[Rfam]
Nucleotides: 283
Base pairs, nucleotide, nucleotide: 002283003282004281005280006279007278008277009276010275011274014239015238016237017236018235019234024078025077026076027075028074029073030072044062045061046060047059048058049057050056082269083268084267086266087265088264089263100112101111102110123140124139125138126137127136128135146200147199148198149197150196151195156192157191158190167184168183169182170181241253242252243251244250245249
Number, partner (000 for none) and nucleotide at each position: 001000g002283a003282c004281a005280a006279c007278g008277a009276a010275g011274a012000a013000g014239a015238u016237c017236u018235g019234c020000a021000u022000g023000u024078u025077u026076g027075a028074c029073g030072c031000a032000a033000a034000a035000c036000a037000c038000a039000c040000a041000c042000g043000a044062g045061a046060a047059a048058a049057a050056g051000u052000c053000c054000u055000u056050c057049u058048u059047u060046u061045u062044c063000a064000u065000u066000u067000c068000u069000a070000u071000c072030g073029c074028g075027u076026u077025a078024g079000g080000g081000a082269a083268g084267u085000u086266c087265u088264c089263c090000a091000g092000a093000c094000a095000u096000g097000u098000g099000u100112a101111c102110c103000u104000g105000u106000a107000a108000a109000g110102g111101g112100u113000u114000g115000u116000u117000g118000a119000a120000a121000a122000g123140c124139g125138g126137u127136c128135u129000c130000u131000u132000u133000u134000g135128a136127g137126a138125c139124u140123g141000u142000g143000a144000u145000g146200a147199a148198g149197c150196u151195c152000u153000g154000g155000c156192g157191a158190c159000c160000a161000u162000u163000u164000a165000u166000g167184c168183g169182g170181c171000c172000a173000a174000g175000a176000u177000a178000u179000g180000a181170g182169u183168c184167g185000u186000g187000g188000u189000u190158g191157u192156u193000u194000g195151g196150g197149g198148u199147u200146u201000u202000g203000u204000c205000c206000a207000u208000c209000a210000g211000u212000u213000c214000u215000a216000g217000u218000c219000a220000u221000a222000g223000g224000a225000a226000g227000a228000g229000u230000u231000a232000u233000u234019g235018c236017a237016g238015a239014u240000c241253a242252u243251g244250g245249u246000u247000u248000u249245a250244c251243c252242a253241u254000g255000a256000a257000c258000u259000c260000a261000a262000u263089g264088g265087a266086g267084g268083c269082u270000a271000c272000u273000c274011u275010c276009u277008u278007u279006g280005u281004u282003g283002u

This 283-nucleotide RNA from Hesseltinella vesiculosa belongs to the Rfam family "RNase MRP". NCBI's taxonomy places the organism under Eukaryota, Opisthokonta, Mucoromycotina, Cunninghamellaceae, Hesseltinella. It is annotated as a ribozyme. Rfam links the family to the GO terms rRNA processing, ribonuclease MRP activity and ribonuclease MRP complex. Pairs were carried over by alignment from the consensus structure, which is taken from published work. Rfam describes the family as follows. RNase MRP is an enzymatically active ribonucleoprotein with two distinct roles in eukaryotes. In mitochondria it plays a direct role in the initiation of mitochondrial DNA replication. In the nucleus it is involved in precursor rRNA processing, where it cleaves the internal transcribed spacer 1 between 18S and 5.8S rRNAs.